[Rfam]
RNA: MIR824 microRNA precursor family
RNA sequence: CUUGAGUUGUCUUUCAUGUCUAGACCAUUUGUGAGAAGGGAGGUGUUAUUUGCACCGUUCGCCCCACCAGUCUUUCAUUCUGCAGUGAGUAUUGUGCUAAAUUAAGGAAAAUAGCUUUGUUCAACAUAUUACACUACUGUUUUAAAAACAAUCCUAUAGUUAGAUGCUUUUACAGUUAGAGAUACGUAUCUGUAUCUUUCCGGCUACCAAAACGUUAAGAACCAAUUAGAAAGGUCAGCCAUUAUUGCCUUGAUUAAGCUGUUUUAAUUCUGUCAUCAUAAUCUGAUCCUUCAUGAGUUUUAAGUAUAUAUUUGUUUUAUAUAUAUAAACUGCAUUCACAGCAUUUCUGGAUACUGCAUAAAUAAUUUUAUCCUUGCUUUUGGACUUUGUUCAUGCUGAUUCUCCUAUAUAAUUUACACUUCGGGCAGCCAUUUAGCCUAAGAGAUGUCAAACUUCUAUCGAGAGUGUUAGAGGUUUAGCUAGUAAUUUGUAUCUUGCACUACUUAGCCACACUAGUUCACUUGAUAAUAAAUGAACUGUGGGGAAGGUGCUGGGUUAUUAUUCCCUUCUCAUCGAUGGUCUAGAUGUGCGAGGUGACUCUCAUGGAAG
Numbered sequence: 001c002u003u004g005a006g007u008u009g010u011c012u013u014u015c016a017u018g019u020c021u022a023g024a025c026c027a028u029u030u031g032u033g034a035g036a037a038g039g040g041a042g043g044u045g046u047u048a049u050u051u052g053c054a055c056c057g058u059u060c061g062c063c064c065c066a067c068c069a070g071u072c073u074u075u076c077a078u079u080c081u082g083c084a085g086u087g088a089g090u091a092u093u094g095u096g097c098u099a100a101a102u103u104a105a106g107g108a109a110a111a112u113a114g115c116u117u118u119g120u121u122c123a124a125c126a127u128a129u130u131a132c133a134c135u136a137c138u139g140u141u142u143u144a145a146a147a148a149c150a151a152u153c154c155u156a157u158a159g160u161u162a163g164a165u166g167c168u169u170u171u172a173c174a175g176u177u178a179g180a181g182a183u184a185c186g187u188a189u190c191u192g193u194a195u196c197u198u199u200c201c202g203g204c205u206a207c208c209a210a211a212a213c214g215u216u217a218a219g220a221a222c223c224a225a226u227u228a229g230a231a232a233g234g235u236c237a238g239c240c241a242u243u244a245u246u247g248c249c250u251u252g253a254u255u256a257a258g259c260u261g262u263u264u265u266a267a268u269u270c271u272g273u274c275a276u277c278a279u280a281a282u283c284u285g286a287u288c289c290u291u292c293a294u295g296a297g298u299u300u301u302a303a304g305u306a307u308a309u310a311u312u313u314g315u316u317u318u319a320u321a322u323a324u325a326u327a328a329a330c331u332g333c334a335u336u337c338a339c340a341g342c343a344u345u346u347c348u349g350g351a352u353a354c355u356g357c358a359u360a361a362a363u364a365a366u367u368u369u370a371u372c373c374u375u376g377c378u379u380u381u382g383g384a385c386u387u388u389g390u391u392c393a394u395g396c397u398g399a400u401u402c403u404c405c406u407a408u409a410u411a412a413u414u415u416a417c418a419c420u421u422c423g424g425g426c427a428g429c430c431a432u433u434u435a436g437c438c439u440a441a442g443a444g445a446u447g448u449c450a451a452a453c454u455u456c457u458a459u460c461g462a463g464a465g466u467g468u469u470a471g472a473g474g475u476u477u478a479g480c481u482a483g484u485a486a487u488u489u490g491u492a493u494c495u496u497g498c499a500c501u502a503c504u505u506a507g508c509c510a511c512a513c514u515a516g517u518u519c520a521c522u523u524g525a526u527a528a529u530a531a532a533u534g535a536a537c538u539g540u541g542g543g544g545a546a547g548g549u550g551c552u553g554g555g556u557u558a559u560u561a562u563u564c565c566c567u568u569c570u571c572a573u574c575g576a577u578g579g580u581c582u583a584g585a586u587g588u589g590c591g592a593g594g595u596g597a598c599u600c601u602c603a604u605g606g607a608a609g
Base pairs, nucleotide, nucleotide: 002607003606004600005599006598007597008596009595010594011593012592013591015589016588017587018586019585020584021583022582023581024580025579026578027577028576029575031573032572033571034570035569036568037567038566039565040564041563042562052551053550054549055548056547064542068539069538070537073536074535075534